[Rfam]
The record is a 379-nucleotide RNA sequence from Olivibacter sp. SDN3, which matches "Bacterial RNase P class A" in Rfam.
Ribonuclease P (RNase P) is a ubiquitous endoribonuclease, found in archaea, bacteria and eukarya as well as chloroplasts and mitochondria. Its best characterised activity is the generation of mature 5'-ends of tRNAs by cleaving the 5'-leader elements of precursor-tRNAs. Cellular RNase Ps are ribonucleoproteins.
A search with the family's covariance model found it, with a score of 258 bits.
Its Rfam clan is "RNaseP clan".
Its family is annotated with tRNA processing, dimeric ribonuclease P complex and ribonuclease P activity in the Gene Ontology.

RNA sequence: AAAGCAAGUUGUUCUAUCGCCGCACCUUUUGGUGAGGAGGAAAGUCCGGACAAUACAGAGCAUCUCGCUUCCUAACAGGAAGGUCCUGAUAAAUCAGGAACGGAAAGUGCCACAGAAAACAAACCGCCCCGAUUUAUCGGAGUAAGGGUGAAAAUGUGAGGUAAGAGCUCACAGCCUUGUAUGGCGACAUACAUUGCGGUAAACCCCGGGAAUUGAAAGACCAAAUAGGUCCUGAGAUGAGGGUUGCUCGCUCUCUUCGCCAGCUGGCGAACUUAGGAUGGGUAGGUCGUUAGACCUUAUGAGUAAUCAUAAGGCUAGAUAAAUGAUAGAAAUCUGCGAUUGUCAGAUACAGAAUCCGGCUUAUAAACUUGCUUUUUUA
Numbered sequence: 001a002a003a004g005c006a007a008g009u010u011g012u013u014c015u016a017u018c019g020c021c022g023c024a025c026c027u028u029u030u031g032g033u034g035a036g037g038a039g040g041a042a043a044g045u046c047c048g049g050a051c052a053a054u055a056c057a058g059a060g061c062a063u064c065u066c067g068c069u070u071c072c073u074a075a076c077a078g079g080a081a082g083g084u085c086c087u088g089a090u091a092a093a094u095c096a097g098g099a100a101c102g103g104a105a106a107g108u109g110c111c112a113c114a115g116a117a118a119a120c121a122a123a124c125c126g127c128c129c130c131g132a133u134u135u136a137u138c139g140g141a142g143u144a145a146g147g148g149u150g151a152a153a154a155u156g157u158g159a160g161g162u163a164a165g166a167g168c169u170c171a172c173a174g175c176c177u178u179g180u181a182u183g184g185c186g187a188c189a190u191a192c193a194u195u196g197c198g199g200u201a202a203a204c205c206c207c208g209g210g211a212a213u214u215g216a217a218a219g220a221c222c223a224a225a226u227a228g229g230u231c232c233u234g235a236g237a238u239g240a241g242g243g244u245u246g247c248u249c250g251c252u253c254u255c256u257u258c259g260c261c262a263g264c265u266g267g268c269g270a271a272c273u274u275a276g277g278a279u280g281g282g283u284a285g286g287u288c289g290u291u292a293g294a295c296c297u298u299a300u301g302a303g304u305a306a307u308c309a310u311a312a313g314g315c316u317a318g319a320u321a322a323a324u325g326a327u328a329g330a331a332a333u334c335u336g337c338g339a340u341u342g343u344c345a346g347a348u349a350c351a352g353a354a355u356c357c358g359g360c361u362u363a364u365a366a367a368c369u370u371g372c373u374u375u376u377u378u379a
Stems, first nucleotide, its partner, number of pairs: 001375010011364001012331007020037002023034004042362003046359005051215004059265003063211005068082005083101001084099006102206002107204002109200003124147002126143002129140004155173006178193006219288004229279006257270005295314008